[Rfam]
RNA sequence: AGAUGGCUUUGGAAUGACACGAUCACUCCCGCUGAGCAGGCACACACAGCCAUCGGGGAUGUCGUGUCUGCCCAAAGCUCUUU
Number, nucleotide and partner (000 for none) at each position: 001a000002g000003a000004u000005g000006g078007c077008u000009u075010u074011g073012g072013a000014a000015u000016g068017a067018c066019a065020c064021g063022a062023u061024c000025a000026c000027u058028c057029c056030c055031g054032c000033u052034g051035a000036g050037c049038a000039g000040g000041c000042a000043c000044a000045c000046a000047c000048a000049g037050c036051c034052a033053u000054c031055g030056g029057g028058g027059a000060u000061g023062u022063c021064g020065u019066g018067u017068c016069u000070g000071c000072c012073c011074a010075a009076a000077g007078c006079u000080c000081u000082u000083u000
This 83-nucleotide RNA from Turnix velox belongs to the Rfam family "mir-425 microRNA precursor family". The match comes from Rfam's covariance-model search (95 bits). The organism belongs to Turnix, within Eukaryota. For this family Rfam cites "Mammalian microRNAs: experimental evaluation of novel and previously annotated genes" (Chiang et al., Genes Dev, 2010).